A member of the RNA family "Metazoan signal recognition particle RNA" from Nesidiocoris tenuis, 300 nucleotides long. The organism belongs to Nesidiocoris, within Eukaryota. For this family Rfam cites "Towards the structure of the mammalian signal recognition particle" (Wild et al., Curr Opin Struct Biol, 2002). About the family: The signal recognition particle (SRP) is a universally conserved ribonucleoprotein. It is involved in the co-translational targeting of proteins to membranes. The eukaryotic SRP consists of a 300-nucleotide 7S RNA and six proteins: SRPs 72, 68, 54, 19, 14, and 9. Archaeal SRP consists of a 7S RNA and homologues of the eukaryotic SRP19 and SRP54 proteins. By type it is a non-coding RNA gene.
RNA sequence: ACUGGGAGUUGUGGCGUGCUCCUGUAAUCCAGCUACUUGGAGGUCGGUCUUUGAGGACGGUUUGAGGUCGGGAUUCACUGUGCGGCGGUGCUUCUGCGUCGACCAGGUGUCCGCGCUAAGCUGACCAUCAACAUGGUGACGUCGGGGGAGCUCAAUGUCACCAGGUUCGCUAAGGAGGGGCGAAACGGGCCAGGGGGGAAACCCAGCAGCCAAAAGUCCCCGUGGUCUGCAGUAGCGGGAUCGCGCCCGUGAGUGGGGCUCGUCGUACAGCCCGAUCGAUACAAUUGGACCAGAGACCAA
Numbered sequence: 001a002c003u004g005g006g007a008g009u010u011g012u013g014g015c016g017u018g019c020u021c022c023u024g025u026a027a028u029c030c031a032g033c034u035a036c037u038u039g040g041a042g043g044u045c046g047g048u049c050u051u052u053g054a055g056g057a058c059g060g061u062u063u064g065a066g067g068u069c070g071g072g073a074u075u076c077a078c079u080g081u082g083c084g085g086c087g088g089u090g091c092u093u094c095u096g097c098g099u100c101g102a103c104c105a106g107g108u109g110u111c112c113g114c115g116c117u118a119a120g121c122u123g124a125c126c127a128u129c130a131a132c133a134u135g136g137u138g139a140c141g142u143c144g145g146g147g148g149a150g151c152u153c154a155a156u157g158u159c160a161c162c163a164g165g166u167u168c169g170c171u172a173a174g175g176a177g178g179g180g181c182g183a184a185a186c187g188g189g190c191c192a193g194g195g196g197g198g199a200a201a202c203c204c205a206g207c208a209g210c211c212a213a214a215a216g217u218c219c220c221c222g223u224g225g226u227c228u229g230c231a232g233u234a235g236c237g238g239g240a241u242c243g244c245g246c247c248c249g250u251g252a253g254u255g256g257g258g259c260u261c262g263u264c265g266u267a268c269a270g271c272c273c274g275a276u277c278g279a280u281a282c283a284a285u286u287g288g289a290c291c292a293g294a295g296a297c298c299a300a
Base pairs, nucleotide, nucleotide: 001044002043003042004023005022006021007020008019009018028041029040030039046298047297048296049295050294051293052292053291058287059286060285061284062283066277067276068275069274070273071272072271078270079269080268081267082266083265084264085263088261090259091258093257094256095255096254097253099251104249106247107246108245109244110243111239112238114237115236116235117234118233120230121229123227124226125225126224127223128222130167131166132165134163135162136161137160138159139158140157141156142155144153145152146151170174177220178219179218180217181216188211189210190209195204196203197202